[Rfam]
RNA sequence: UAAUGCUUGGCUCCCUCUAUGCCAUUUGUUAAGUCCACCAGUAAACCGGUGGUCUUCGUGGAUGGCAUGCGAGGAGUCAUGCAUGG
Numbered sequence: 001u002a003a004u005g006c007u008u009g010g011c012u013c014c015c016u017c018u019a020u021g022c023c024a025u026u027u028g029u030u031a032a033g034u035c036c037a038c039c040a041g042u043a044a045a046c047c048g049g050u051g052g053u054c055u056u057c058g059u060g061g062a063u064g065g066c067a068u069g070c071g072a073g074g075a076g077u078c079a080u081g082c083a084u085g086g
Stems, first nucleotide, its partner, number of pairs: 001086001003084004008079007016071001018069007027060003
mir-160 microRNA precursor family: an 86-nucleotide sequence from Camellia sinensis.
Rfam 15.1 lists 1,502 matches to the family in 247 species.
The match comes from Rfam's covariance-model search (51 bits).
Taxonomically the source falls in Camellia sinensis (Eukaryota, Tracheophyta, Euphyllophyta, Camellia).
Rfam links the family to the GO terms RISC complex and miRNA-mediated post-transcriptional gene silencing.